[Rfam]
RNA sequence: GCACUCUUCUAUUUCCAGAUCUCUUGUGUAUCAAUAUUAUACAGAGGGGUAAAGCAUUCUUCUCUCUUAAACCCUAAAUUGAGCUCUUACUCUAUUUUGGAUCCUGUCGGGAGAAAUUUUA
Numbered sequence: 001g002c003a004c005u006c007u008u009c010u011a012u013u014u015c016c017a018g019a020u021c022u023c024u025u026g027u028g029u030a031u032c033a034a035u036a037u038u039a040u041a042c043a044g045a046g047g048g049g050u051a052a053a054g055c056a057u058u059c060u061u062c063u064c065u066c067u068u069a070a071a072c073c074c075u076a077a078a079u080u081g082a083g084c085u086c087u088u089a090c091u092c093u094a095u096u097u098u099g100g101a102u103c104c105u106g107u108c109g110g111g112a113g114a115a116a117u118u119u120u121a
Base pairs, nucleotide, nucleotide: 003050004049005048006047007046008045009044010043017037019035060115062113063112064111065110066109073100074099076097077096078095079094081092082091083090085089
Shown here is a 121-nucleotide RNA sequence from Microcaecilia unicolor, a member of the family "Small nucleolar RNA SNORA26". The source organism's lineage runs through Eukaryota, Teleostomi, Sarcopterygii, Siphonopidae and Microcaecilia. The family's consensus secondary structure was predicted with RNAalifold. A search with the family's covariance model found it, with a score of 48 bits. Rfam 15.1 lists 1,943 matches to the family in 640 species. The family is grouped with related families in Rfam's "SNORA27 clan".